[Rfam]
RNA: radC RNA
RNA sequence: AUUAUUGAACCGUGAUCUGCUGACGUCGUCAGCAACAUGCCCCAUGCAGCUCGGAUCCGUAACGCUGCAGCACGUUAAUCGUGUGAUCCUCCUCAAGGUCGUUCAGCUUCUGGUAGCACGACCGGUCGACUAUCCGUCGAUAGAAGC
Number, nucleotide and partner (000 for none) at each position: 001a000002u000003u000004a000005u000006u000007g000008a000009a000010c000011c039012g038013u037014g036015a000016u034017c000018u000019g033020c032021u031022g030023a029024c028025g000026u000027c000028g024029u023030c022031a021032g020033c019034a016035a000036c014037a013038u012039g011040c000041c000042c000043c000044a000045u000046g068047c067048a066049g065050c064051u000052c000053g000054g088055a087056u086057c085058c000059g000060u000061a000062a000063c000064g050065c049066u048067g047068c046069a000070g084071c083072a082073c081074g080075u000076u000077a000078a000079u000080c074081g073082u072083g071084u070085g057086a056087u055088c054089c000090u000091c000092c000093u000094c000095a000096a000097g000098g000099u000100c000101g000102u000103u000104c000105a000106g000107c000108u000109u000110c000111u000112g000113g000114u000115a000116g000117c000118a000119c146120g000121a000122c000123c000124g000125g141126u140127c139128g138129a137130c136131u000132a000133u000134c000135c000136g130137u129138c128139g127140a126141u125142a000143g000144a000145a000146g119147c000